[Rfam]
RNA sequence: CAACUUAGAAGGCCGAAGCUUUUCAUGAAGCACGGGGGACCCAUGAUCCGGGGUGAAGCCGCGCAAGCGGCCGGGUGAUUGCUCUUUGACCCGAAUCCGACAGCUAACCUCGCAGGCCGCAAAAAGGAGAUGG
Numbered sequence: 001c002a003a004c005u006u007a008g009a010a011g012g013c014c015g016a017a018g019c020u021u022u023u024c025a026u027g028a029a030g031c032a033c034g035g036g037g038g039a040c041c042c043a044u045g046a047u048c049c050g051g052g053g054u055g056a057a058g059c060c061g062c063g064c065a066a067g068c069g070g071c072c073g074g075g076u077g078a079u080u081g082c083u084c085u086u087u088g089a090c091c092c093g094a095a096u097c098c099g100a101c102a103g104c105u106a107a108c109c110u111c112g113c114a115g116g117c118c119g120c121a122a123a124a125a126g127g128a129g130a131u132g133g
Base pairs, nucleotide, nucleotide: 011118012117013116014115018031019030020029033112034111035110036109037108042050051098052097053096059070060069061068062067073092074091075090076089
Dot-bracket structure: ..........((((...(((........))).(((((....(.......)(((.....((((....))))..((((............))))...))).........)))))..))))...............

c-di-AMP riboswitch aptamer (ydaO/yuaA leader): a 133-nucleotide RNA sequence from Paenibacillus whitsoniae. Taxonomically the source falls in Paenibacillus (Bacteria, Bacillati, Bacilli, Caryophanales).